[Rfam]
RNA sequence: CUGACCCCCGGCAUAGGUCGCGCAACGUGGGUAAAGUCAUCGACACCCUAACGUGUGGCUUUGCCGACCUCAUGGGGUAC
Numbered sequence: 001c002u003g004a005c006c007c008c009c010g011g012c013a014u015a016g017g018u019c020g021c022g023c024a025a026c027g028u029g030g031g032u033a034a035a036g037u038c039a040u041c042g043a044c045a046c047c048c049u050a051a052c053g054u055g056u057g058g059c060u061u062u063g064c065c066g067a068c069c070u071c072a073u074g075g076g077g078u079a080c
Stems, first nucleotide, its partner, number of pairs: 003080001004078005009066005015061009029048004036041001